[Rfam]
RNA sequence: GUAAUGUGUAGAGACAAUUUAUUAUAGUGUCUCUCCAUUGAGGAAGAACAUUGAGGUAUAUUGAAAACAAAGGCCAAGAUAUCGUUUCAAUAGUCAUUUUCCUUGAUUGACGAUUUGAUUGUUGCUUGGCCAUAA
Numbered sequence: 001g002u003a004a005u006g007u008g009u010a011g012a013g014a015c016a017a018u019u020u021a022u023u024a025u026a027g028u029g030u031c032u033c034u035c036c037a038u039u040g041a042g043g044a045a046g047a048a049c050a051u052u053g054a055g056g057u058a059u060a061u062u063g064a065a066a067a068c069a070a071a072g073g074c075c076a077a078g079a080u081a082u083c084g085u086u087u088c089a090a091u092a093g094u095c096a097u098u099u100u101c102c103u104u105g106a107u108u109g110a111c112g113a114u115u116u117g118a119u120u121g122u123u124g125c126u127u128g129g130c131c132a133u134a135a
Stems, first nucleotide, its partner, number of pairs: 006039001011033006072131002075128004081119004090114002093111004098106002

The family of this 135-nucleotide RNA sequence from Corchorus olitorius is "Small nucleolar RNA snoR111". The match comes from Rfam's covariance-model search (78 bits). The family's RNA type in Rfam is H/ACA-box small nucleolar RNA. NCBI's taxonomy places the organism under Eukaryota, Viridiplantae, Mesangiospermae, rosids, Corchorus. Rfam links the family to the GO terms nucleolus and RNA processing. A reference for the family is Marker et al. (2002), "Experimental RNomics: identification of 140 candidates for small non-messenger RNAs in the plant Arabidopsis thaliana", Curr Biol.